[Rfam]
RNA sequence: GGGCGAGGUAGAGGUCGCGAUGAUGAAGAGUACGCCGGAGGAAGCCCGGCAAGGCUGCCGAUUCCGCCGGAAAGGCAUCGUCGCCGAAGCCGCGGAGGCGUGCUGGCCGUCCCGGCUGGGGCCGCUUCCGAAAGGGGCGGAACUGUCAUGCCGCCGCGUUCGGGCGGGGCAUGUUGCGCUAUCAAGGUC
Numbered sequence: 001g002g003g004c005g006a007g008g009u010a011g012a013g014g015u016c017g018c019g020a021u022g023a024u025g026a027a028g029a030g031u032a033c034g035c036c037g038g039a040g041g042a043a044g045c046c047c048g049g050c051a052a053g054g055c056u057g058c059c060g061a062u063u064c065c066g067c068c069g070g071a072a073a074g075g076c077a078u079c080g081u082c083g084c085c086g087a088a089g090c091c092g093c094g095g096a097g098g099c100g101u102g103c104u105g106g107c108c109g110u111c112c113c114g115g116c117u118g119g120g121g122c123c124g125c126u127u128c129c130g131a132a133a134g135g136g137g138c139g140g141a142a143c144u145g146u147c148a149u150g151c152c153g154c155c156g157c158g159u160u161c162g163g164g165c166g167g168g169g170c171a172u173g174u175u176g177c178g179c180u181a182u183c184a185a186g187g188u189c
Base pairs, nucleotide, nucleotide: 007183008182009181010180011179017084018083019082020081021080022079023078024077025076033069034068036066037065038064039063040062088117089116090115091114092113094111095110097108098107099106118144119143122140123139124138125137126136127135128134147173148172149171150170151169152168
RNA: Lysine riboswitch aptamer